[Rfam]
Rfam assigns this 78-nucleotide RNA sequence from Acer yangbiense to the family "small nucleolar RNA snoR117". Gene Ontology terms of the family: nucleolus and RNA processing. A search with the family's covariance model found it, with a score of 57 bits. For this family Rfam cites "Mining small RNA sequencing data: a new approach to identify small nucleolar RNAs in Arabidopsis" (Chen and Wu, Nucleic Acids Res, 2009). By type it is a C/D-box small nucleolar RNA.
RNA sequence: GGCCGGUGAUGCAUACAAAAUUGUCCGUACCAUCUGAAAUACUGAUGUUAUCAAUUGCAAUCAAUCCUCCUGAGGCCU
Numbered sequence: 001g002g003c004c005g006g007u008g009a010u011g012c013a014u015a016c017a018a019a020a021u022u023g024u025c026c027g028u029a030c031c032a033u034c035u036g037a038a039a040u041a042c043u044g045a046u047g048u049u050a051u052c053a054a055u056u057g058c059a060a061u062c063a064a065u066c067c068u069c070c071u072g073a074g075g076c077c078u
Base pairs, nucleotide, nucleotide: 001077002076003075004074